Rfam assigns this 74-nucleotide RNA from Desulfobaculum bizertense to the family "tRNA". Transfer RNA (tRNA) molecules are approximately 80 nucleotides in length. A search with the family's covariance model found it, with a score of 68 bits.
[Rfam]
RNA sequence: CGGGAUGUGGCUCAGUUUGGUAGAGCGCUGCGUUCGGGACGCAGAGACCGCGUGUUCAAAUCACGCCAUCCCGA
Numbered sequence: 001c002g003g004g005a006u007g008u009g010g011c012u013c014a015g016u017u018u019g020g021u022a023g024a025g026c027g028c029u030g031c032g033u034u035c036g037g038g039a040c041g042c043a044g045a046g047a048c049c050g051c052g053u054g055u056u057c058a059a060a061u062c063a064c065g066c067c068a069u070c071c072c073g074a
Stems, first nucleotide, its partner, number of pairs: 001073007010026004028044005050066005